The family of this 186-nucleotide sequence from Branchiostoma lanceolatum is "U2 spliceosomal RNA". Rfam links the family to the GO terms mRNA branch site recognition, pre-mRNA branch point binding and U2 snRNP. The match comes from Rfam's covariance-model search (107 bits). The base pairs follow the family's consensus structure, which is taken from published work. It is annotated as a spliceosomal small nuclear RNA.

[Rfam]
RNA sequence: AUGUCUUGAAAGUUGUAUUUCUACCCAAACGAAAAUGUUCUUAUCAGUUUAAUCUCUGAUACAUUCCCCAUCGGGGAAUCUAGAUUAAAUUGAUUUUUUGACUUUGGUCAUGGACUAGGAGCUUGCUCCGUCCUGACCGCGGAUCGGCUCAGUAUUGCAGUACUUCUGAGAUUCGGUCCAUCCCCU
Numbered sequence: 001a002u003g004u005c006u007u008g009a010a011a012g013u014u015g016u017a018u019u020u021c022u023a024c025c026c027a028a029a030c031g032a033a034a035a036u037g038u039u040c041u042u043a044u045c046a047g048u049u050u051a052a053u054c055u056c057u058g059a060u061a062c063a064u065u066c067c068c069c070a071u072c073g074g075g076g077a078a079u080c081u082a083g084a085u086u087a088a089a090u091u092g093a094u095u096u097u098u099u100g101a102c103u104u105u106g107g108u109c110a111u112g113g114a115c116u117a118g119g120a121g122c123u124u125g126c127u128c129c130g131u132c133c134u135g136a137c138c139g140c141g142g143a144u145c146g147g148c149u150c151a152g153u154a155u156u157g158c159a160g161u162a163c164u165u166c167u168g169a170g171a172u173u174c175g176g177u178c179c180a181u182c183c184c185c186u
Stems, first nucleotide, its partner, number of pairs: 042061006063079007106138005112132002118129004141179006148170005